[Rfam]
RNA: Flavo-1 RNA
Organism: Pedobacter changchengzhani
RNA sequence: UUUUAUUUGCGUUAGGGAUAGAAGCGAUAUACUUUUUUGUUAAAGAUUACCUCAAUAAAUUACAAAAAAGAUAAAGCGGAUAGCCCGCCCGAAC
Numbered sequence: 001u002u003u004u005a006u007u008u009g010c011g012u013u014a015g016g017g018a019u020a021g022a023a024g025c026g027a028u029a030u031a032c033u034u035u036u037u038u039g040u041u042a043a044a045g046a047u048u049a050c051c052u053c054a055a056u057a058a059a060u061u062a063c064a065a066a067a068a069a070g071a072u073a074a075a076g077c078g079g080a081u082a083g084c085c086c087g088c089c090c091g092a093a094c
Base pairs, nucleotide, nucleotide: 015086016085017084019082020081024077025076029072030071035067036066037065038064039063040062042060